[Rfam]
RNA sequence: AUAGGUCUUCAGGGCAGGGUGCAAUUCCCUACCGGUGGUAAAGCCCACGAGCCAAUACUUUGUACUUUCUAAUCAAAGUGGUAUGAUUCGGUGAAAUUCCGAAGCCGACAGUAAAGUCUGGAUAAAAGAAGAUGAAU
Numbered sequence: 001a002u003a004g005g006u007c008u009u010c011a012g013g014g015c016a017g018g019g020u021g022c023a024a025u026u027c028c029c030u031a032c033c034g035g036u037g038g039u040a041a042a043g044c045c046c047a048c049g050a051g052c053c054a055a056u057a058c059u060u061u062g063u064a065c066u067u068u069c070u071a072a073u074c075a076a077a078g079u080g081g082u083a084u085g086a087u088u089c090g091g092u093g094a095a096a097u098u099c100c101g102a103a104g105c106c107g108a109c110a111g112u113a114a115a116g117u118c119u120g121g122a123u124a125a126a127a128g129a130a131g132a133u134g135a136a137u
Stems, first nucleotide, its partner, number of pairs: 005133006017029003031117002033107002035048004043105002053081001087103005109120003